[Rfam]
RNA sequence: CGUCAGAGCUCGGCCGGCUGCUUGCAGUUGGUAGGCGGGUGAUGGCGUGCCUUUUGAAGAAUGA
Numbered sequence: 001c002g003u004c005a006g007a008g009c010u011c012g013g014c015c016g017g018c019u020g021c022u023u024g025c026a027g028u029u030g031g032u033a034g035g036c037g038g039g040u041g042a043u044g045g046c047g048u049g050c051c052u053u054u055u056g057a058a059g060a061a062u063g064a
Stems, first nucleotide, its partner, number of pairs: 002046004008040005050063001052061001
RNA: Bacterial large subunit ribosomal RNA, nucleotides 613 to 676